[Rfam]
RNA sequence: CAAUUACCGGCUCAUUCCGUCGCGUAUCUGGCUGAUAAAGAAAUACCGUCCUGCUCAGCGACAAUGUCCGGCAUGCCUGGCGUAUGCUCAUCGAAAACUGUGCGGUCAGAGAGCUGACGAAUUCACGCUUUAUCGCUGAUUUU
Numbered sequence: 001c002a003a004u005u006a007c008c009g010g011c012u013c014a015u016u017c018c019g020u021c022g023c024g025u026a027u028c029u030g031g032c033u034g035a036u037a038a039a040g041a042a043a044u045a046c047c048g049u050c051c052u053g054c055u056c057a058g059c060g061a062c063a064a065u066g067u068c069c070g071g072c073a074u075g076c077c078u079g080g081c082g083u084a085u086g087c088u089c090a091u092c093g094a095a096a097a098c099u100g101u102g103c104g105g106u107c108a109g110a111g112a113g114c115u116g117a118c119g120a121a122u123u124c125a126c127g128c129u130u131u132a133u134c135g136c137u138g139a140u141u142u143u
Stems, first nucleotide, its partner, number of pairs: 025112001027110002030107002048077001050075001052073003058067003080103004116141002120137001122135001